[Rfam]
RNA: RNase MRP
RNA sequence: AGCGGAAGCGUGGUGUUGUGAUUGGGCCAUUGCAACCUGCUAGGCUCAGGAAAGUCCCCGGGCCAUGAUCUGCAGAGAUGCAGACUCGGUAAUGAGUAAUCUUCGCGCUGGCAAAUUGGCUGAGACACGUGUGGAGCCUUCAAUUUGCCGCCGAAGCACGUGGCCGAUUUUACAGUGAUUCACAUAGGUGGGGGUGCUACCACCAACAGAACGGGGCUUACAUCCAUGUGAUCUGC
Numbered sequence: 001a002g003c004g005g006a007a008g009c010g011u012g013g014u015g016u017u018g019u020g021a022u023u024g025g026g027c028c029a030u031u032g033c034a035a036c037c038u039g040c041u042a043g044g045c046u047c048a049g050g051a052a053a054g055u056c057c058c059c060g061g062g063c064c065a066u067g068a069u070c071u072g073c074a075g076a077g078a079u080g081c082a083g084a085c086u087c088g089g090u091a092a093u094g095a096g097u098a099a100u101c102u103u104c105g106c107g108c109u110g111g112c113a114a115a116u117u118g119g120c121u122g123a124g125a126c127a128c129g130u131g132u133g134g135a136g137c138c139u140u141c142a143a144u145u146u147g148c149c150g151c152c153g154a155a156g157c158a159c160g161u162g163g164c165c166g167a168u169u170u171u172a173c174a175g176u177g178a179u180u181c182a183c184a185u186a187g188g189u190g191g192g193g194g195u196g197c198u199a200c201c202a203c204c205a206a207c208a209g210a211a212c213g214g215g216g217c218u219u220a221c222a223u224c225c226a227u228g229u230g231a232u233c234u235g236c
Base pairs, nucleotide, nucleotide: 002236003235004234005233006232009228010227011226012225013224017184018183019182020181021180023048024047025046026045027044052219053218054217056216057215058214059213071082072081073080074079084097085096086095087094088093101156102155106153107152109150110149111148113146114145115144116143118138119137120136127132187204188203189202190201191200